[Rfam]
This 101-nucleotide sequence from Morus notabilis belongs to the Rfam family "Small nucleolar RNA R64/Z200 family". Gene Ontology terms of the family: nucleolus and RNA processing. A search with the family's covariance model found it, with a score of 48 bits. For this family Rfam cites "Purified box C/D snoRNPs are able to reproduce site-specific 2'-O-methylation of target RNA in vitro" (Galardi et al., Mol Cell Biol, 2002). The organism belongs to Morus, within Eukaryota. The family has 14 seed sequences and 748 matches in Rfam 15.1.
RNA sequence: UCUGUGCAGUGAUGUUACACGAAUAAAAAUACACGUCAGACUUCGAGAUUUUUUUCAUCGAAAAAUCAAUGAGAUAAAAUAUUCAUACAGCUGAGCAGAAA
Number, nucleotide and partner (000 for none) at each position: 001u101002c000003u099004g000005u097006g096007c095008a000009g000010u000011g000012a000013u000014g000015u000016u000017a000018c000019a000020c000021g000022a000023a000024u000025a000026a000027a000028a000029a000030u000031a000032c000033a000034c000035g000036u000037c000038a000039g000040a000041c000042u000043u000044c000045g000046a000047g067048a066049u065050u064051u063052u062053u061054u060055u000056c000057a000058u000059c000060g054061a053062a052063a051064a050065a049066u048067c047068a000069a000070u000071g000072a000073g000074a000075u000076a000077a000078a000079a000080u000081a000082u000083u000084c000085a000086u000087a000088c000089a000090g000091c000092u000093g000094a000095g007096c006097a005098g000099a003100a000101a001